[Rfam]
RNA sequence: UGACGGAAGAGCACACAAGGAGUGGAGCCUGCGGCUUAAUUUGACUCAACACGGGGAAACUCACUAGGGCAAGAGAAUGGUAGGAUAGACAGCCGAUCAGGGCUUUCAUGAUUCGUUCAGUGGUGGUGCAUGGUCGUUCUUAGUUCGUGGAUUGAUUUGUCUGGUCUAUUCCGCUAACGAGCGAGAACCCACCCUCUCGUGGUUAGGAUCCUUGAGCAUGCCGCUACCCUAAUGGCCCGCAAGGGACUCCUGGGGUUCUGGCUGAAAAAGCUCCUGGACUCGAUCCGGAGGGACCGGCUUCGAUAAGGAGCUGGCAGCGGGUCAAUAACAGGUCAGUGAUGCCCUUAGAUGCUCUAGGCCGCACGCGCGCUACAAUGGGGCAAGUACCGGGUCCCUGUGCCUUAAGGCCACGGGGAAUCCGGGAAAGUGCCCCUUAUCCGGGAUAACGCCGUGUAACUCGGCGUUUGAACAAGGAAUUUCUAGUAGUCAUGGGUCACCAGCCCGUGACGAUUCUGUCCCUGCUCUUUGUACACA
Numbered sequence: 001u002g003a004c005g006g007a008a009g010a011g012c013a014c015a016c017a018a019g020g021a022g023u024g025g026a027g028c029c030u031g032c033g034g035c036u037u038a039a040u041u042u043g044a045c046u047c048a049a050c051a052c053g054g055g056g057a058a059a060c061u062c063a064c065u066a067g068g069g070c071a072a073g074a075g076a077a078u079g080g081u082a083g084g085a086u087a088g089a090c091a092g093c094c095g096a097u098c099a100g101g102g103c104u105u106u107c108a109u110g111a112u113u114c115g116u117u118c119a120g121u122g123g124u125g126g127u128g129c130a131u132g133g134u135c136g137u138u139c140u141u142a143g144u145u146c147g148u149g150g151a152u153u154g155a156u157u158u159g160u161c162u163g164g165u166c167u168a169u170u171c172c173g174c175u176a177a178c179g180a181g182c183g184a185g186a187a188c189c190c191a192c193c194c195u196c197u198c199g200u201g202g203u204u205a206g207g208a209u210c211c212u213u214g215a216g217c218a219u220g221c222c223g224c225u226a227c228c229c230u231a232a233u234g235g236c237c238c239g240c241a242a243g244g245g246a247c248u249c250c251u252g253g254g255g256u257u258c259u260g261g262c263u264g265a266a267a268a269a270g271c272u273c274c275u276g277g278a279c280u281c282g283a284u285c286c287g288g289a290g291g292g293a294c295c296g297g298c299u300u301c302g303a304u305a306a307g308g309a310g311c312u313g314g315c316a317g318c319g320g321g322u323c324a325a326u327a328a329c330a331g332g333u334c335a336g337u338g339a340u341g342c343c344c345u346u347a348g349a350u351g352c353u354c355u356a357g358g359c360c361g362c363a364c365g366c367g368c369g370c371u372a373c374a375a376u377g378g379g380g381c382a383a384g385u386a387c388c389g390g391g392u393c394c395c396u397g398u399g400c401c402u403u404a405a406g407g408c409c410a411c412g413g414g415g416a417a418u419c420c421g422g423g424a425a426a427g428u429g430c431c432c433c434u435u436a437u438c439c440g441g442g443a444u445a446a447c448g449c450c451g452u453g454u455a456a457c458u459c460g461g462c463g464u465u466u467g468a469a470c471a472a473g474g475a476a477u478u479u480c481u482a483g484u485a486g487u488c489a490u491g492g493g494u495c496a497c498c499a500g501c502c503c504g505u506g507a508c509g510a511u512u513c514u515g516u517c518c519c520u521g522c523u524c525u526u527u528g529u530a531c532a533c534a
Stems, first nucleotide, its partner, number of pairs: 001532002003529003007526007015516002019480005024373001026371003030367004034362002040055004064357007075118005088107002091104003122345002125343004131339001132337001133333003136329003143182006149158003162173003188321003193291003198282002201279001294314008377433006390420002394414002398410001399408003440470001445465007486508008